The family of this 134-nucleotide sequence from Curtobacterium sp. MR_MD2014 is "FMN riboswitch aptamer (RFN element)".
RNA sequence: AAGCGCUCCGGGGUCGGUGCAAUUCCGAACCGGUGGUGACAGUCCACGAGCUGACGCAGGGUGCGAACCCCGCCGAUGUUGACCCGGCGGAACUCCGGGACCGACGGUGAGAGUCCGGACGGGAGGAAGCGCAG
Numbered sequence: 001a002a003g004c005g006c007u008c009c010g011g012g013g014u015c016g017g018u019g020c021a022a023u024u025c026c027g028a029a030c031c032g033g034u035g036g037u038g039a040c041a042g043u044c045c046a047c048g049a050g051c052u053g054a055c056g057c058a059g060g061g062u063g064c065g066a067a068c069c070c071c072g073c074c075g076a077u078g079u080u081g082a083c084c085c086g087g088c089g090g091a092a093c094u095c096c097g098g099g100a101c102c103g104a105c106g107g108u109g110a111g112a113g114u115c116c117g118g119a120c121g122g123g124a125g126g127a128a129g130c131g132c133a134g
Base pairs, nucleotide, nucleotide: 003132004131005130006129007128008126009125015027016026017025029114030113031103032102033047034046035045036044042101043100050079051078083099084098085097086096087095105117106116107115
The match comes from Rfam's covariance-model search (82 bits).
The source organism's lineage runs through Bacteria, Bacillati, Actinomycetota, Actinomycetes and Curtobacterium.